Rfam assigns this 156-nucleotide sequence from Oryza glumipatula to the family "MIR807 microRNA precursor family".
[Rfam]
RNA sequence: UCGAUGAAUGUAUUCACCUGCGAGAUGACGUGAUUGUUCCAUCUAGAAUAAGGACGUGGCAUCCUAUUAAUUUCGUGCGAUGGCGGGUAAUAUGAUGUCAUGUCCUCGUCCUUGAUGAAACAGUCACGUCAUCUCGCGGGUGAAUCCAUUCAUUGA
Dot-bracket structure: (((((.(((..(((((((.((((.(((((.((((((((..((..(..(....(((...(((((.(((((......(..........)))))).)))))...)))....)..)..))..)))))))).))))).)))).)))))))..))).)))))

Its family is annotated with miRNA-mediated post-transcriptional gene silencing and RISC complex in the Gene Ontology.